This 108-nucleotide RNA from Mycena indigotica belongs to the Rfam family "tRNA". About the family: Transfer RNA (tRNA) molecules are approximately 80 nucleotides in length. A search with the family's covariance model found it, with a score of 46 bits. The source organism's lineage runs through Eukaryota, Fungi, Basidiomycota, Mycenaceae and Mycena.
Nucleotides: 108
Stems, first nucleotide, its partner, number of pairs: 001107007010026003028078005084100005
Number, partner (000 for none) and nucleotide at each position: 001107g002106g003105g004104c005103u006102u007101a008000u009000a010026g011025u012024g013000u014000a015000g016000u017000u018000g019000g020000u021000u022000a023000u024012c025011g026010c027000g028078c029077u030076c031075g032074c033000u034000u035000c036000g037000c038000a039000u040000g041000g042000g043000c044000a045000u046000u047000g048000u049000a050000a051000a052000u053000g054000g055000g056000a057000u058000a059000g060000c061000a062000a063000g064000c065000c066000a067000c068000a069000c070000g071000a072000a073000u074032g075031c076030g077029a078028g079000a080000g081000g082000u083000g084100g085099c086098c087097g088096g089000u090000u091000c092000g093000a094000u095000u096088c097087c098086g099085g100084c101007u102006g103005a104004g105003u106002c107001c108000a
On this family, see Hou, Trends Biochem Sci 1993: "The tertiary structure of tRNA and the development of the genetic code".